[Rfam]
RNA: Burkholderia sRNA Bp1_Cand738_SIPHT
Organism: Paraburkholderia megapolitana
RNA sequence: CGAAAAACCAGCGUCGAAAGGGCGCUGGCGAGGACGACAAACAGACCGUUGGGAGCCGUGCAGGGGUCGGCUAACGGCGACGCGUUGCGUCUAAAGGACCGGGGGCGGUGGUCGAAAAACUACGGCCCUGCAACCAAUGUCGACGGAUUCUAGCAGGGUUUUAUAGAUCGUCAACACUAUGGAACGUCACAAUCAUAACCAAAUGUAA
Numbered sequence: 001c002g003a004a005a006a007a008c009c010a011g012c013g014u015c016g017a018a019a020g021g022g023c024g025c026u027g028g029c030g031a032g033g034a035c036g037a038c039a040a041a042c043a044g045a046c047c048g049u050u051g052g053g054a055g056c057c058g059u060g061c062a063g064g065g066g067u068c069g070g071c072u073a074a075c076g077g078c079g080a081c082g083c084g085u086u087g088c089g090u091c092u093a094a095a096g097g098a099c100c101g102g103g104g105g106c107g108g109u110g111g112u113c114g115a116a117a118a119a120c121u122a123c124g125g126c127c128c129u130g131c132a133a134c135c136a137a138u139g140u141c142g143a144c145g146g147a148u149u150c151u152a153g154c155a156g157g158g159u160u161u162u163a164u165a166g167a168u169c170g171u172c173a174a175c176a177c178u179a180u181g182g183a184a185c186g187u188c189a190c191a192a193u194c195a196u197a198a199c200c201a202a203a204u205g206u207a208a
Stems, first nucleotide, its partner, number of pairs: 008028007046111005054072005079091005138176003143171004149167004